[Rfam]
This 83-nucleotide RNA from Starkeya sp. ORNL1 belongs to the Rfam family "chrB-a RNA". The family's consensus secondary structure is taken from published work. NCBI's taxonomy places the organism under Bacteria, Alphaproteobacteria, Hyphomicrobiales, Xanthobacteraceae, Starkeya. Rfam 15.1 lists 347 matches to the family in 339 species. Rfam classes the family as a cis-regulatory element.
Nucleotides: 083
Stems, first nucleotide, its partner, number of pairs: 006026005049078006
Number, partner (000 for none) and nucleotide at each position: 001000u002000g003000u004000a005000a006026g007025g008024g009023g010022u011000u012000a013000c014000u015000c016000g017000c018000g019000a020000u021000u022010a023009c024008c025007c026006c027000g028000u029000g030000a031000g032000g033000c034000g035000c036000c037000a038000g039000c040000c041000c042000a043000a044000a045000g046000a047000u048000c049078g050077c051076g052075u053074c054073c055000a056000u057000g058000u059000u060000c061000c062000c063000g064000a065000u066000a067000c068000g069000g070000g071000g072000u073054g074053g075052a076051c077050g078049c079000u080000c081000a082000u083000g